[Rfam]
RNA sequence: GGAGCGGCUUCUGGAGAGAUCGCAUAUUGCGACGCCGAAGGGUUCACAAUCUCAGGCAAAAGGACAGAAGAGUAAAG
Numbered sequence: 001g002g003a004g005c006g007g008c009u010u011c012u013g014g015a016g017a018g019a020u021c022g023c024a025u026a027u028u029g030c031g032a033c034g035c036c037g038a039a040g041g042g043u044u045c046a047c048a049a050u051c052u053c054a055g056g057c058a059a060a061a062g063g064a065c066a067g068a069a070g071a072g073u074a075a076a077g
Stems, first nucleotide, its partner, number of pairs: 008070006020032004034057003037053002041051003